[Rfam]
RNA sequence: GACCGGUUUACUUCUUGAGGUAAACGGGGUGCACCCCCAUAAUUCGCGCAUGGUUGUAAUUCCGGCAACCCGGAGGCGUUCUGGACAGGGGUUCGACUCCCCUCAUCUCCACCUAAGCGCAUGCGAUUGCGUGCUUUUCGGUGGGGAUGUACCGGUUUCGACAGGGCGGGCAAAGGUGCGCAGGCAACCCGACAGGCGACGGACGUAAUCCGCGCAAAACCACAAACGCCAACGAUGAGCGUUUCGCAGUAGCUGCAUAAGCUAACUGCCGGGGCCGCUGAAGCCUUGUAACCCAAGACAGCCGGUGGGGGCCUCGGUCCCCACCGUCA
Numbered sequence: 001g002a003c004c005g006g007u008u009u010a011c012u013u014c015u016u017g018a019g020g021u022a023a024a025c026g027g028g029g030u031g032c033a034c035c036c037c038c039a040u041a042a043u044u045c046g047c048g049c050a051u052g053g054u055u056g057u058a059a060u061u062c063c064g065g066c067a068a069c070c071c072g073g074a075g076g077c078g079u080u081c082u083g084g085a086c087a088g089g090g091g092u093u094c095g096a097c098u099c100c101c102c103u104c105a106u107c108u109c110c111a112c113c114u115a116a117g118c119g120c121a122u123g124c125g126a127u128u129g130c131g132u133g134c135u136u137u138u139c140g141g142u143g144g145g146g147a148u149g150u151a152c153c154g155g156u157u158u159c160g161a162c163a164g165g166g167c168g169g170g171c172a173a174a175g176g177u178g179c180g181c182a183g184g185c186a187a188c189c190c191g192a193c194a195g196g197c198g199a200c201g202g203a204c205g206u207a208a209u210c211c212g213c214g215c216a217a218a219a220c221c222a223c224a225a226a227c228g229c230c231a232a233c234g235a236u237g238a239g240c241g242u243u244u245c246g247c248a249g250u251a252g253c254u255g256c257a258u259a260a261g262c263u264a265a266c267u268g269c270c271g272g273g274g275c276c277g278c279u280g281a282a283g284c285c286u287u288g289u290a291a292c293c294c295a296a297g298a299c300a301g302c303c304g305g306u307g308g309g310g311g312c313c314u315c316g317g318u319c320c321c322c323a324c325c326g327u328c329a
Base pairs, nucleotide, nucleotide: 052189053188054187055186056185062184063183065181066180068177069176070175077168078167079166080165081164082163083162087103088102089101090100091099104149105148106147107146108145109144110143190205191204193202272286273285274284275283277302278301279300280299305324306323307322308321309320310319311318312317
About this RNA:
Rfam assigns this 329-nucleotide RNA sequence from Pseudomonas indica to the family "Betaproteobacteria transfer-messenger RNA". Lineage of the source: Bacteria > Pseudomonadati > Pseudomonadota > Pseudomonadaceae > Pseudomonas. For this family Rfam cites "Phylogenetic analysis of tmRNA secondary structure" (Williams and Bartel, RNA, 1996). The base pairs follow the family's consensus structure, which is taken from published work. From the family's description: Bacterial tmRNA, also known as 10Sa RNA or SsrA, is named for its dual tRNA and mRNA-like properties. Its role is to liberate the mRNA from a stalled ribosome. To accomplish this part of the tmRNA is used as a reading frame that ends in a translation stop signal. The broken mRNA is replaced in the ribosome by the tmRNA and translation of the tmRNA leads to addition of a proteolysis tag to the incomplete protein enabling recognition by a protease. Gene Ontology term of the family: RNA catabolic process.